Annotation: A member of the RNA family "Group II catalytic intron D1-D4-3" from Termitidicoccus mucosus, 167 nucleotides long. The organism belongs to Termitidicoccus, within Bacteria.
[Rfam]
RNA sequence: GAAAGAGUAAUCUUUCGGGGGGAGGAAGGCUGGGGGAAACCUGCGAGACGAUGAACAAGAAGCGGAUAAAAGGCCGGCAGGGAGACGACGAGCUGGCACCACACAGCGAAGUCGCAGGGUCAUGCCCUGACGGUAAAUCCGACGUUUGCGCAGGGAAGCAACGCGUU
Number, nucleotide and partner (000 for none) at each position: 001g016002a015003a014004a013005g012006a011007g000008u000009a000010a000011u006012c005013u004014u003015u002016c001017g000018g000019g000020g000021g000022g000023a000024g000025g000026a000027a000028g167029g166030c165031u000032g000033g000034g000035g000036g159037a000038a000039a000040c154041c153042u152043g151044c150045g149046a147047g146048a145049c144050g143051a000052u000053g000054a000055a000056c000057a000058a000059g000060a000061a000062g000063c141064g140065g139066a138067u137068a000069a000070a000071a000072g000073g134074c133075c132076g000077g000078c129079a128080g127081g126082g125083a000084g000085a000086c114087g113088a112089c111090g000091a000092g107093c106094u105095g104096g000097c000098a000099c000100c000101a000102c000103a000104c095105a094106g093107c092108g000109a000110a000111g089112u088113c087114g086115c000116a000117g000118g000119g000120u000121c000122a000123u000124g000125c082126c081127c080128u079129g078130a000131c000132g075133g074134u073135a000136a000137a067138u066139c065140c064141g063142a000143c050144g049145u048146u047147u046148g000149c045150g044151c043152a042153g041154g040155g000156a000157a000158g000159c036160a000161a000162c000163g000164c000165g030166u029167u028